[Rfam]
RNA sequence: AUAAUCAGAUGGGCGAAGCAAAUUUGCCCCUUCACGCGGUCAAAGUCUUGGGAGGAUGCGAUCUAGGCGCGAUUUUCCGCUGCCGCCGGCCACCGGAAACAGAUCGGACGCGUUAAUCUGCAAGGCCUUCGGGCCUUGCUUUUUUUU
Numbered sequence: 001a002u003a004a005u006c007a008g009a010u011g012g013g014c015g016a017a018g019c020a021a022a023u024u025u026g027c028c029c030c031u032u033c034a035c036g037c038g039g040u041c042a043a044a045g046u047c048u049u050g051g052g053a054g055g056a057u058g059c060g061a062u063c064u065a066g067g068c069g070c071g072a073u074u075u076u077c078c079g080c081u082g083c084c085g086c087c088g089g090c091c092a093c094c095g096g097a098a099a100c101a102g103a104u105c106g107g108a109c110g111c112g113u114u115a116a117u118c119u120g121c122a123a124g125g126c127c128u129u130c131g132g133g134c135c136u137u138g139c140u141u142u143u144u145u146u147u
Base pairs, nucleotide, nucleotide: 003147004146011029012028013027014026015025016024035112036111037110038109045057046056047055048054060105061104062103063102064101066084067083068082069080070079071078086096087095088094120139121138122137123136124135125134126133
This 147-nucleotide RNA sequence from Mesorhizobium australicum belongs to the Rfam family "Alphaproteobacterial sRNA ar9". The source organism's lineage runs through Bacteria, Pseudomonadati, Alphaproteobacteria, Hyphomicrobiales and Mesorhizobium. The pairing is the family consensus, mapped onto this sequence. For this family Rfam cites "A survey of sRNA families in alpha-proteobacteria" (del Val et al., RNA Biol, 2012). A search with the family's covariance model found it, with a score of 114 bits.